[Rfam]
This 79-nucleotide RNA from Eleutherodactylus coqui belongs to the Rfam family "mir-19 microRNA precursor family". The source organism's lineage runs through Eukaryota, Teleostomi, Euteleostomi, Batrachia and Eleutherodactylus. The family has 106 seed sequences and 2,337 matches in Rfam 15.1. The base pairs follow the family's consensus structure, which was predicted with RNAalifold. On this family, see Lagos-Quintana et al., Science 2001: "Identification of novel genes coding for small expressed RNAs". It scores 70 bits against the family's covariance model. Gene Ontology terms of the family: RISC complex and miRNA-mediated post-transcriptional gene silencing.
RNA sequence: UCCCAUGAGUAGUUUUGCAGGUUUGCUUCCAGCUGCUCUAAGGCUCGCUGUGCAAAUCCAUGCAAAACUGAUCAUGUCG
Numbered sequence: 001u002c003c004c005a006u007g008a009g010u011a012g013u014u015u016u017g018c019a020g021g022u023u024u025g026c027u028u029c030c031a032g033c034u035g036c037u038c039u040a041a042g043g044c045u046c047g048c049u050g051u052g053c054a055a056a057u058c059c060a061u062g063c064a065a066a067a068c069u070g071a072u073c074a075u076g077u078c079g
Stems, first nucleotide, its partner, number of pairs: 004076005010070010020059002022056005028050001031049003